[Rfam]
RNA sequence: UCAUCACCAUCAUCACCCUAUCUAGUCUUUCGGGGAGAUUUACGUAUACCCGGGAGCAAGAAUUCUCCCGGAGGUUAAGUCAAAGAAUUUAGAUUUAAACCCUCGGGACGACAAAGUCUUCCGAGGGUUUUUUAGU
Numbered sequence: 001u002c003a004u005c006a007c008c009a010u011c012a013u014c015a016c017c018c019u020a021u022c023u024a025g026u027c028u029u030u031c032g033g034g035g036a037g038a039u040u041u042a043c044g045u046a047u048a049c050c051c052g053g054g055a056g057c058a059a060g061a062a063u064u065c066u067c068c069c070g071g072a073g074g075u076u077a078a079g080u081c082a083a084a085g086a087a088u089u090u091a092g093a094u095u096u097a098a099a100c101c102c103u104c105g106g107g108a109c110g111a112c113a114a115a116g117u118c119u120u121c122c123g124a125g126g127g128u129u130u131u132u133u134a135g136u
Base pairs, nucleotide, nucleotide: 009047010046012039013038014037017034018033019032050071051070052069053068054067055066056065097130098129099128100127101126102125103124104123105122106121107120108119